[Rfam]
RNA: Yersinia sRNA 197
RNA sequence: UGUACGUUCAAAUAAUCAACAAACGAAAAAAAUGUGAAGAUAAACCCUUGCCAUUCUGAAGCAGCUCCCUAUAAUGCGCAUCCAUCGACACGGCGCUGUGAGCAACUUCACAGAGUGGCCGGGGAGAGCAGAGAAAAUUAACUGAUUAAGUGGUUGACUCUGUAGCGGGAAAGCGUAUUAUCUGCCUCCCGCGUUACCGUAAGAUUCGCCGCAAGGCAAACGGGUAACGAACGCUCUUUAACAAUUUAUCAGAC
Numbered sequence: 001u002g003u004a005c006g007u008u009c010a011a012a013u014a015a016u017c018a019a020c021a022a023a024c025g026a027a028a029a030a031a032a033u034g035u036g037a038a039g040a041u042a043a044a045c046c047c048u049u050g051c052c053a054u055u056c057u058g059a060a061g062c063a064g065c066u067c068c069c070u071a072u073a074a075u076g077c078g079c080a081u082c083c084a085u086c087g088a089c090a091c092g093g094c095g096c097u098g099u100g101a102g103c104a105a106c107u108u109c110a111c112a113g114a115g116u117g118g119c120c121g122g123g124g125a126g127a128g129c130a131g132a133g134a135a136a137a138u139u140a141a142c143u144g145a146u147u148a149a150g151u152g153g154u155u156g157a158c159u160c161u162g163u164a165g166c167g168g169g170a171a172a173g174c175g176u177a178u179u180a181u182c183u184g185c186c187u188c189c190c191g192c193g194u195u196a197c198c199g200u201a202a203g204a205u206u207c208g209c210c211g212c213a214a215g216g217c218a219a220a221c222g223g224g225u226a227a228c229g230a231a232c233g234c235u236c237u238u239u240a241a242c243a244a245u246u247u248a249u250c251a252g253a254c
Stems, first nucleotide, its partner, number of pairs: 005233005045124004050119008058109004064103004071099003076096004128163006136155005142150002165192006173185003193228006